Description
Connexin-43 internal ribosome entry site (IRES): a 193-nucleotide RNA from Hippolais icterina. The family's consensus secondary structure is taken from published work. This family represents the connexin-43 internal ribosome entry site (IRES) which allows cap independent translation during conditions such as heat shock and stress. Its family is annotated with ribosome binding in the Gene Ontology.

[Rfam]
RNA sequence: AACUUUUACGAGGUAUCAGCACUUUUCUUUCAUUAGUGGGGAAGGAAGGAUGAAAAAUACAAAACAGCAGUAGACUUUUAAAGUUUAAAUAGACAGGUCUGAGUGCCUGAACGUGCUCUUCCAUUUUAGUUUAACCCUCCAAAGACGUAUUCUGAUCCAUUUUCACUGCUGAUCAGCCAGGGUAAGUUGCAAG
Numbered sequence: 001a002a003c004u005u006u007u008a009c010g011a012g013g014u015a016u017c018a019g020c021a022c023u024u025u026u027c028u029u030u031c032a033u034u035a036g037u038g039g040g041g042a043a044g045g046a047a048g049g050a051u052g053a054a055a056a057a058u059a060c061a062a063a064a065c066a067g068c069a070g071u072a073g074a075c076u077u078u079u080a081a082a083g084u085u086u087a088a089a090u091a092g093a094c095a096g097g098u099c100u101g102a103g104u105g106c107c108u109g110a111a112c113g114u115g116c117u118c119u120u121c122c123a124u125u126u127u128a129g130u131u132u133a134a135c136c137c138u139c140c141a142a143a144g145a146c147g148u149a150u151u152c153u154g155a156u157c158c159a160u161u162u163u164c165a166c167u168g169c170u171g172a173u174c175a176g177c178c179a180g181g182g183u184a185a186g187u188u189g190c191a192a193g
Stems, first nucleotide, its partner, number of pairs: 003019002007015003030145002033142002036139001038137003041132003049125004056120002072100006101116001103114003159188001161186003166180003169176002